[Rfam]
RNA sequence: GGCAAGGAGUGCCAGCGUCAAGCCCCGGCUCGCUGGCCGGCAACCCUCACUGAUGCGGGGUGCCCCGGGUGAAGGCCAGGUGGCGUUCGCGUCACAAGCAACGGUG
Numbered sequence: 001g002g003c004a005a006g007g008a009g010u011g012c013c014a015g016c017g018u019c020a021a022g023c024c025c026c027g028g029c030u031c032g033c034u035g036g037c038c039g040g041c042a043a044c045c046c047u048c049a050c051u052g053a054u055g056c057g058g059g060g061u062g063c064c065c066c067g068g069g070u071g072a073a074g075g076c077c078a079g080g081u082g083g084c085g086u087u088c089g090c091g092u093c094a095c096a097a098g099c100a101a102c103g104g105u106g
Base pairs, nucleotide, nucleotide: 001077002076003075009038011037012036013035014034015033016032021030022029039064040063041062044060045059046058048055049054080095081094082093083092084091085090
The family of this 106-nucleotide sequence from Actinocorallia herbida is "SAM (S-adenosyl methionine) riboswitch aptamer".
A reference for the family is Weinberg et al. (2008), "The aptamer core of SAM-IV riboswitches mimics the ligand-binding site of SAM-I riboswitches", RNA.
The base pairs follow the family's consensus structure, which is taken from published work.